[Rfam]
RNA sequence: AGGCUAUGAUGAAUCAUAGAGAUAGUCAUGCACCACUUUGAUUUCCUGUGCUGAUAACUUUCUUAUACCCAUUAUUUUUCAGAGCCU
Numbered sequence: 001a002g003g004c005u006a007u008g009a010u011g012a013a014u015c016a017u018a019g020a021g022a023u024a025g026u027c028a029u030g031c032a033c034c035a036c037u038u039u040g041a042u043u044u045c046c047u048g049u050g051c052u053g054a055u056a057a058c059u060u061u062c063u064u065a066u067a068c069c070c071a072u073u074a075u076u077u078u079u080c081a082g083a084g085c086c087u
Stems, first nucleotide, its partner, number of pairs: 001087004
Small nucleolar RNA Z221/R21b: an 87-nucleotide sequence. It is one of the family's seed sequences.